[Rfam]
RNA sequence: CCAAUGUUAAUCUCGUACUUGGGGCGCACAUACAGAGUGCUAGUCACUUUAUCCGCCCCGGGAAGGUCUGAGUAAAGGUCACCGUGUUUUAAACAUUCUAGCCGGAUGCUUUCCCAAAAGGAAAGGCAGGGGAACCAGAAAUUACGGUGUAGUGUGAAGCUUGUGAAGCCAGGCCUGAAAGGCUAGGUGGAGGUGUGAACACUAUCACUGUUGGAAACCUCUGUGACCAGCAAUUUUAGCACGAUCUACGAGAUGACCCUGUGUCACAACUCAAUUCAGACUAGUCUUUCAUUGG
Number, nucleotide and partner (000 for none) at each position: 001c295002c294003a293004a292005u000006g000007u000008u000009a287010a000011u000012c252013u251014c250015g249016u248017a247018c000019u000020u000021g059022g058023g057024g056025c055026g000027c000028a000029c000030a000031u000032a000033c000034a000035g049036a048037g047038u046039g045040c000041u000042a000043g000044u000045c039046a038047c037048u036049u035050u000051a000052u000053c000054c000055g025056c024057c023058c022059c021060g000061g000062g000063a000064a000065g000066g000067u000068c279069u278070g277071a276072g275073u000074a000075a000076a000077g228078g227079u226080c225081a000082c000083c000084g000085u000086g000087u000088u000089u000090u000091a000092a000093a000094c108095a107096u106097u105098c104099u000100a000101g000102c000103c000104g098105g097106a096107u095108g094109c125110u124111u123112u122113c121114c120115c000116a000117a000118a000119a000120g114121g113122a112123a111124a110125g109126g224127c223128a222129g221130g220131g219132g218133a000134a000135c000136c000137a000138g000139a000140a000141a000142u000143u000144a000145c210146g000147g000148u000149g000150u000151a000152g000153u000154g000155u000156g000157a000158a000159g000160c000161u000162u000163g000164u000165g000166a000167a000168g000169c000170c000171a000172g000173g000174c000175c000176u000177g000178a000179a000180a000181g000182g000183c000184u000185a000186g000187g000188u000189g000190g000191a000192g000193g000194u000195g000196u000197g000198a000199a000200c000201a000202c000203u000204a000205u000206c000207a000208c000209u000210g145211u000212u000213g000214g000215a000216a000217a000218c132219c131220u130221c129222u128223g127224u126225g080226a079227c078228c077229a000230g000231c000232a000233a000234u000235u000236u000237u000238a000239g000240c000241a000242c000243g000244a000245u000246c000247u017248a016249c015250g014251a013252g012253a000254u266255g265256a264257c263258c000259c000260u000261g000262u000263g257264u256265c255266a254267c000268a000269a000270c000271u000272c000273a000274a000275u072276u071277c070278a069279g068280a000281c000282u000283a000284g000285u000286c000287u009288u000289u000290c000291a000292u004293u003294g002295g001
Source information:
The record is a 295-nucleotide RNA sequence from Chrysodeixis includens, which matches "Nuclear RNase P" in Rfam. The base pairs follow the family's consensus structure, which is taken from published work. It scores 137 bits against the family's covariance model. The family's RNA type in Rfam is ribozyme. Ribonuclease P (RNase P) is a ubiquitous endoribonuclease, found in archaea, bacteria and eukarya as well as chloroplasts and mitochondria. Taxonomically the source falls in Chrysodeixis (Eukaryota, Metazoa, Bilateria, Protostomia).